[Rfam]
RNA sequence: GGUGAUAAAUCGUGUCGUAUAAUAGACGCAGCGGACCCGGGGGCAGUACCCGGCGGUUCCACCACAUGUCCCGGAUGGCCUUUGGUCUGGCGGGGUGUCUGAUGGGGCCGAACUAGGAUCGACGUGUGUUCAAAGGCGAUGCUUUUACCCGGCCCGUGUAAGCCGUUAAACUGUGCAAAACUCACAAGUGCCAACGAUAACGAAGCACUCGCCAUUGCAGCGUAA
Number, nucleotide and partner (000 for none) at each position: 001g149002g148003u147004g146005a145006u000007a000008a000009a000010u000011c000012g000013u000014g000015u139016c138017g137018u136019a000020u000021a000022a000023u000024a000025g000026a000027c128028g127029c126030a000031g125032c124033g123034g000035a000036c000037c053038c052039g051040g050041g049042g000043g000044c000045a000046g000047u000048a000049c041050c040051c039052g038053g037054c110055g109056g108057u107058u106059c105060c104061a000062c000063c000064a000065c000066a000067u000068g000069u000070c000071c000072c000073g000074g000075a000076u000077g000078g000079c000080c000081u000082u000083u000084g000085g000086u000087c000088u000089g000090g000091c000092g000093g000094g000095g000096u000097g000098u000099c000100u000101g000102a000103u000104g060105g059106g058107g057108c056109c055110g054111a000112a000113c000114u000115a000116g000117g000118a000119u000120c000121g000122a000123c033124g032125u031126g029127u028128g027129u000130u000131c000132a000133a000134a000135g000136g018137c017138g016139a015140u000141g000142c000143u000144u000145u005146u004147a003148c002149c001150c165151g164152g163153c162154c000155c000156g000157u000158g000159u000160a000161a000162g153163c152164c151165g150166u000167u000168a000169a000170a000171c000172u000173g000174u000175g000176c000177a000178a000179a000180a000181c000182u000183c000184a000185c000186a000187a000188g000189u000190g000191c000192c000193a000194a000195c000196g000197a000198u000199a000200a000201c000202g000203a000204a000205g000206c000207a000208c000209u000210c000211g000212c000213c000214a000215u000216u000217g000218c000219a000220g000221c000222g000223u000224a000225a000
permuted transfer-messenger RNA: a 225-nucleotide RNA sequence from Sphingobium yanoikuyae. The organism belongs to Sphingobium yanoikuyae, within Bacteria. Bacterial tmRNA, also known as 10Sa RNA or SsrA, is named for its dual tRNA and mRNA-like properties. Its role is to liberate the mRNA from a stalled ribosome. To accomplish this part of the tmRNA is used as a reading frame that ends in a translation stop signal. The match comes from Rfam's covariance-model search (128 bits). Rfam classes the family as a non-coding RNA gene.